[Rfam]
Overview:
The record is a 35-nucleotide RNA sequence, which matches "S4-Flavobacteria ribosomal protein leader" in Rfam. Clan: Ribosomal Protein S4 Leader clan. The family's consensus secondary structure is taken from published work.
RNA sequence: AUCUAUCGAAGGAAUUGACCUUAAUUCAUAGAUGC
Numbered sequence: 001a002u003c004u005a006u007c008g009a010a011g012g013a014a015u016u017g018a019c020c021u022u023a024a025u026u027c028a029u030a031g032a033u034g035c
Base pairs, nucleotide, nucleotide: 002032003031004030005029006028008027009022010021011020012019
The sequence is in the family's curated seed alignment.
The literature on the family includes a 2020 paper in BMC Microbiol by Eckert and Weinberg, "Discovery of 20 novel ribosomal leader candidates in bacteria and archaea".
Rfam classes the family as a cis-regulatory leader.